A member of the RNA family "mir-350 microRNA precursor family" from Moschus moschiferus, 87 nucleotides long. A search with the family's covariance model found it, with a score of 84 bits. On this family, see Poy et al., Nature 2004: "A pancreatic islet-specific microRNA regulates insulin secretion".
RNA sequence: GCUCCUGCAAGAGUGAAAUGCAUGUGCUUUGGGACAGUGAAGAUAAUAAUGUUAACAAAACCCAUACACUUAUACCCUUUAGGAGAG
Dot-bracket structure: .((((((.(((.((.((.((.....(.((((.((((.............))))..)))).).....)).))..)).)))))))))..
The family has 5 seed sequences and 121 matches in Rfam 15.1.